[Rfam]
A member of the RNA family "RAGATH-18 RNA", 62 nucleotides long. About the family: Actinobacteria, Firmicutes, Fusobacteria, Thermotogae (1 example). The sequence is in the family's curated seed alignment.
RNA sequence: CCUUGGGAGAGUUAUAAAAACUGAAGUAGCCUUUAGCAAAACAGGACUCGAUGAAUAAGGAA
Dot-bracket structure: (((((...(((((.......(((.....((.....))....))))))))......)))))..
Background:
The family's RNA type in Rfam is small RNA.